[Rfam]
RNA: Lysine riboswitch aptamer
RNA sequence: AUGUGGAGUAGAGGUCGCGGAGCUUCAAGAGUACCUGUCGGGAGGGCCGGUCCCCGACGAUCGGCAGGGAAAGGGGAGUCCGCCGAAGUUUCUCUCCUUGCCGGGAGGGGAGGAGCUGGGGUUGUCGCCGAACAGGGGCAACACUGUCACGGGAACAUAUCGCGUCCCGUGGAGCACUAUCUCACAG
Numbered sequence: 001a002u003g004u005g006g007a008g009u010a011g012a013g014g015u016c017g018c019g020g021a022g023c024u025u026c027a028a029g030a031g032u033a034c035c036u037g038u039c040g041g042g043a044g045g046g047c048c049g050g051u052c053c054c055c056g057a058c059g060a061u062c063g064g065c066a067g068g069g070a071a072a073g074g075g076g077a078g079u080c081c082g083c084c085g086a087a088g089u090u091u092c093u094c095u096c097c098u099u100g101c102c103g104g105g106a107g108g109g110g111a112g113g114a115g116c117u118g119g120g121g122u123u124g125u126c127g128c129c130g131a132a133c134a135g136g137g138g139c140a141a142c143a144c145u146g147u148c149a150c151g152g153g154a155a156c157a158u159a160u161c162g163c164g165u166c167c168c169g170u171g172g173a174g175c176a177c178u179a180u181c182u183c184a185c186a187g
Stems, first nucleotide, its partner, number of pairs: 006182001008180004017083005023078004034068008087117012118145002121142006128135001147172007